[Rfam]
Nucleotides: 114
Base pairs, nucleotide, nucleotide: 012025013024014023015022049095050094051093057087059085061082062081063080
Number, partner (000 for none) and nucleotide at each position: 001000g002000a003000a004000u005000g006000a007000a008000g009000g010000a011000a012025g013024c014023a015022u016000g017000g018000u019000a020000a021000u022015a023014u024013g025012u026000a027000c028000a029000a030000a031000a032000a033000u034000u035000g036000a037000u038000u039000u040000g041000g042000g043000u044000c045000u046000c047000u048000a049095g050094c051093c052000u053000c054000u055000a056000g057087g058000c059085c060000u061082g062081c063080c064000c065000u066000c067000u068000u069000u070000g071000a072000u073000u074000u075000c076000u077000u078000u079000u080063g081062g082061c083000u084000u085059g086000a087057u088000u089000u090000g091000g092000g093051g094050g095049c096000a097000u098000g099000g100000u101000u102000c103000c104000a105000c106000a107000g108000c109000a110000a111000a112000a113000u114000g